[Rfam]
RNA: c-di-GMP-I riboswitch aptamer
RNA sequence: ACAACGAAAAGGCAAACUUAUCGAAAGGUAAGGACGCAAAGCUAAGGACCUAAAGCAUCUAUGCCAUGGUAGCCUAGCCGCCGAA
Numbered sequence: 001a002c003a004a005c006g007a008a009a010a011g012g013c014a015a016a017c018u019u020a021u022c023g024a025a026a027g028g029u030a031a032g033g034a035c036g037c038a039a040a041g042c043u044a045a046g047g048a049c050c051u052a053a054a055g056c057a058u059c060u061a062u063g064c065c066a067u068g069g070u071a072g073c074c075u076a077g078c079c080g081c082c083g084a085a
Base pairs, nucleotide, nucleotide: 012037013036017032018031019030020029021028022027041078042077043076045075046074047073048070049069050068055064056063057062